Alphaproteobacteria transfer-messenger RNA: a 342-nucleotide RNA from Croceibacterium atlanticum.
The family's consensus secondary structure is taken from published work.
A search with the family's covariance model found it, with a score of 246 bits.
Bacterial tmRNA, also known as 10Sa RNA or SsrA, is named for its dual tRNA and mRNA-like properties.
The family's RNA type in Rfam is non-coding RNA gene.
RNA sequence: UCACUUCACAUUCAUCACGCAAACCCUAUAUAGGGCCUGCCGGUUUCGGCCGGCUAUGGCGAUAAAAUGCGGUGUGCAAUAGGCACAGCGGACCCGGGGGCAGUACCCGGCGGCUCCACCAAAAACCCGGUAUUCCGGGCUUUCUGACGGGGCCGAACCAGGAUCGACGUGUGUUGAAAGACACUGUUUUCGCCCGGGCUGAGUAACCCGUUUAAGGCUCAAAACACACAAGUGCCAACGAUAACGAAGCACUCGCAAUCGCUGCGUAAUUUUACGUCCUAACGGACUGAAUUUACAAAGCUAAAGCGCGGUUGGACCCACCGGGCAACAGAAGGGAUUCCA
Numbered sequence: 001u002c003a004c005u006u007c008a009c010a011u012u013c014a015u016c017a018c019g020c021a022a023a024c025c026c027u028a029u030a031u032a033g034g035g036c037c038u039g040c041c042g043g044u045u046u047c048g049g050c051c052g053g054c055u056a057u058g059g060c061g062a063u064a065a066a067a068u069g070c071g072g073u074g075u076g077c078a079a080u081a082g083g084c085a086c087a088g089c090g091g092a093c094c095c096g097g098g099g100g101c102a103g104u105a106c107c108c109g110g111c112g113g114c115u116c117c118a119c120c121a122a123a124a125a126c127c128c129g130g131u132a133u134u135c136c137g138g139g140c141u142u143u144c145u146g147a148c149g150g151g152g153c154c155g156a157a158c159c160a161g162g163a164u165c166g167a168c169g170u171g172u173g174u175u176g177a178a179a180g181a182c183a184c185u186g187u188u189u190u191c192g193c194c195c196g197g198g199c200u201g202a203g204u205a206a207c208c209c210g211u212u213u214a215a216g217g218c219u220c221a222a223a224a225c226a227c228a229c230a231a232g233u234g235c236c237a238a239c240g241a242u243a244a245c246g247a248a249g250c251a252c253u254c255g256c257a258a259u260c261g262c263u264g265c266g267u268a269a270u271u272u273u274a275c276g277u278c279c280u281a282a283c284g285g286a287c288u289g290a291a292u293u294u295a296c297a298a299a300g301c302u303a304a305a306g307c308g309c310g311g312u313u314g315g316a317c318c319c320a321c322c323g324g325g326c327a328a329c330a331g332a333a334g335g336g337a338u339u340c341c342a
Stems, first nucleotide, its partner, number of pairs: 039054005058194005069187007084173003088170003094110005111155007195210004200221003309323004314341003319336001